About this RNA:
A member of the RNA family "MicA sRNA" from Xenorhabdus nematophila, 71 nucleotides long. For this family Rfam cites "Novel small RNA-encoding genes in the intergenic regions of Escherichia coli" (Argaman et al., Curr Biol, 2001). Rfam classes the family as a small RNA. The source organism's lineage runs through Bacteria, Pseudomonadota, Enterobacterales, Morganellaceae and Xenorhabdus nematophila. Its family is annotated with mRNA binding in the Gene Ontology. It is one of the family's seed sequences.
RNA sequence: GAAGAUGCGCAAAAUUGUUAUUAUCCCUAUUCUCUAAGAUACUUUAUUCGGCCACCUCCGGUGGCCAUUUU
Dot-bracket structure: ......................(((..((.....)).))).........(((((((...))))))).....
Numbered sequence: 001g002a003a004g005a006u007g008c009g010c011a012a013a014a015u016u017g018u019u020a021u022u023a024u025c026c027c028u029a030u031u032c033u034c035u036a037a038g039a040u041a042c043u044u045u046a047u048u049c050g051g052c053c054a055c056c057u058c059c060g061g062u063g064g065c066c067a068u069u070u071u
Stems, first nucleotide, its partner, number of pairs: 023040003028036002050066007